[Rfam]
RNA sequence: CUCUUAUCGAGAGUGGCGGAGGGACUGGCCCUACGAAGCCCGGCAACCGGCAUAUUAUGCAUCGGUGCUAAUUCCAGCGAUAUUUUGAUAUCGACAGAUGAGAU
Numbered sequence: 001c002u003c004u005u006a007u008c009g010a011g012a013g014u015g016g017c018g019g020a021g022g023g024a025c026u027g028g029c030c031c032u033a034c035g036a037a038g039c040c041c042g043g044c045a046a047c048c049g050g051c052a053u054a055u056u057a058u059g060c061a062u063c064g065g066u067g068c069u070a071a072u073u074c075c076a077g078c079g080a081u082a083u084u085u086u087g088a089u090a091u092c093g094a095c096a097g098a099u100g101a102g103a104u
Stems, first nucleotide, its partner, number of pairs: 002103007013041001015040003021031003025077004042069004047065002050060003073096001078093006
The family of this 104-nucleotide sequence from Paramaledivibacter caminithermalis is "SAM riboswitch aptamer (S box leader)".